[Rfam]
RNA sequence: ACAACAACAAUAAAAUCAGCAGCACCGCGACUCGACACUGAUAUAACAAAAACAACACACAGGUCGGUAGCAAACAGAUUUUUUUGGAGAAUGCGGGCUUUUCCAGGACUCGUCCUAGCAACCAGAUAGAACAAUAAAACUACCUUGAGGUAGCUGAGCUGGUUGGAUCACCGCGUGAUGAGGGCAACGUUGGCGUCCAAAAAAAUAUGUUUUCUUUGGCCUACCCCGGUCAGAAAAAGCUCGCGACACCCACGGUCAUCAACAAUAACAACAGACCGCUCAACAAUAAAAAAUAAAGCUAUUAUUUGAGGGGAGCUACGGCUCCCCUCAGUGCUUUCUGAUGCCGCACUCCCGCCCGUUU
Numbered sequence: 001a002c003a004a005c006a007a008c009a010a011u012a013a014a015a016u017c018a019g020c021a022g023c024a025c026c027g028c029g030a031c032u033c034g035a036c037a038c039u040g041a042u043a044u045a046a047c048a049a050a051a052a053c054a055a056c057a058c059a060c061a062g063g064u065c066g067g068u069a070g071c072a073a074a075c076a077g078a079u080u081u082u083u084u085u086g087g088a089g090a091a092u093g094c095g096g097g098c099u100u101u102u103c104c105a106g107g108a109c110u111c112g113u114c115c116u117a118g119c120a121a122c123c124a125g126a127u128a129g130a131a132c133a134a135u136a137a138a139a140c141u142a143c144c145u146u147g148a149g150g151u152a153g154c155u156g157a158g159c160u161g162g163u164u165g166g167a168u169c170a171c172c173g174c175g176u177g178a179u180g181a182g183g184g185c186a187a188c189g190u191u192g193g194c195g196u197c198c199a200a201a202a203a204a205a206u207a208u209g210u211u212u213u214c215u216u217u218g219g220c221c222u223a224c225c226c227c228g229g230u231c232a233g234a235a236a237a238a239g240c241u242c243g244c245g246a247c248a249c250c251c252a253c254g255g256u257c258a259u260c261a262a263c264a265a266u267a268a269c270a271a272c273a274g275a276c277c278g279c280u281c282a283a284c285a286a287u288a289a290a291a292a293a294u295a296a297a298g299c300u301a302u303u304a305u306u307u308g309a310g311g312g313g314a315g316c317u318a319c320g321g322c323u324c325c326c327c328u329c330a331g332u333g334c335u336u337u338c339u340g341a342u343g344c345c346g347c348a349c350u351c352c353c354g355c356c357c358g359u360u361u
Stems, first nucleotide, its partner, number of pairs: 033066002036063001038062002082202005097194002119165007140153005247343002251340002253278004298334002308329009
Pseudomonas sRNA CrcZ: a 361-nucleotide RNA sequence from Pseudomonas guineae. It is annotated as a small RNA. It scores 185 bits against the family's covariance model. The organism belongs to Pseudomonas, within Bacteria. The base pairs follow the family's consensus structure, which was predicted with WAR. Rfam 15.1 lists 127 matches to the family in 96 species.